[Rfam]
RNA: Small nucleolar SNORD12/SNORD106
RNA sequence: AAAGUGUGGAAUGAUGUAAAAACUUUUUUCCCCAUCAUAUCGACAGUGAUGAUAAACUCAUUGUCACUUUGUGACAAGCCAGAACUGCCUGACCACACUCU
Numbered sequence: 001a002a003a004g005u006g007u008g009g010a011a012u013g014a015u016g017u018a019a020a021a022a023c024u025u026u027u028u029u030c031c032c033c034a035u036c037a038u039a040u041c042g043a044c045a046g047u048g049a050u051g052a053u054a055a056a057c058u059c060a061u062u063g064u065c066a067c068u069u070u071g072u073g074a075c076a077a078g079c080c081a082g083a084a085c086u087g088c089c090u091g092a093c094c095a096c097a098c099u100c101u
Stems, first nucleotide, its partner, number of pairs: 001101001003099007